[Rfam]
RNA: MIR6274 microRNA precursor family
Organism: Prunus avium
RNA sequence: GGAUAUCACUUUUUUGCUAUCCCCAACUAAUAAUAUAAUGACACAUGGAAUAACUUUUCCACACGUCAUUGUGUUAUUAGCUGGGGAUAGCAAAAUAGCGUUAUCC
Numbered sequence: 001g002g003a004u005a006u007c008a009c010u011u012u013u014u015u016g017c018u019a020u021c022c023c024c025a026a027c028u029a030a031u032a033a034u035a036u037a038a039u040g041a042c043a044c045a046u047g048g049a050a051u052a053a054c055u056u057u058u059c060c061a062c063a064c065g066u067c068a069u070u071g072u073g074u075u076a077u078u079a080g081c082u083g084g085g086g087a088u089a090g091c092a093a094a095a096u097a098g099c100g101u102u103a104u105c106c
Stems, first nucleotide, its partner, number of pairs: 002105004012095009022085004027080016046061005